This 81-nucleotide sequence from Oryctolagus cuniculus belongs to the Rfam family "Small nucleolar RNA SNORD115".
A search with the family's covariance model found it, with a score of 99 bits.
Pairs were carried over by alignment from the consensus structure, which was predicted with PFOLD.
Gene Ontology terms of the family: RNA processing and nucleolus.
It is annotated as a C/D-box small nucleolar RNA.
Taxonomically the source falls in Oryctolagus (Eukaryota, Amniota, Eutheria, Leporidae).
Rfam 15.1 lists 3,387 matches to the family in 131 species.
On this family, see Cavaille et al., Proc Natl Acad Sci U S A 2000: "Identification of brain-specific and imprinted small nucleolar RNA genes exhibiting an unusual genomic organization".
[Rfam]
RNA sequence: GGGUCGAUGAUGAGACCUCAUACUGCCUUGAAGAGAGAUGAUGACUUAAAAAUCAUGCUCGAUAGGAUUACGCUGAGGCCC
Numbered sequence: 001g002g003g004u005c006g007a008u009g010a011u012g013a014g015a016c017c018u019c020a021u022a023c024u025g026c027c028u029u030g031a032a033g034a035g036a037g038a039u040g041a042u043g044a045c046u047u048a049a050a051a052a053u054c055a056u057g058c059u060c061g062a063u064a065g066g067a068u069u070a071c072g073c074u075g076a077g078g079c080c081c
Stems, first nucleotide, its partner, number of pairs: 001081004005075002008072002